[Rfam]
Nucleotides: 048
Base pairs, nucleotide, nucleotide: 003044004043005042006041007040009021010020011019012018013017024045
Number, partner (000 for none) and nucleotide at each position: 001000a002000u003044c004043g005042u006041u007040c008000a009021u010020c011019c012018c013017c014000a015000a016000g017013g018012g019011g020010g021009a022000c023000g024045c025000a026000a027000a028000u029000g030000c031000c032000g033000a034000c035000u036000g037000a038000a039000g040007g041006a042005a043004c044003g045024g046000g047000u048000c
Rfam assigns this 48-nucleotide RNA sequence to the family "Glutamine riboswitch aptamer (glnA leader)". The sequence is in the family's curated seed alignment. The literature on the family includes a 2015 paper in Cell Rep by Ren et al., "Structural and Dynamic Basis for Low-Affinity, High-Selectivity Binding of L-Glutamine by the Glutamine Riboswitch".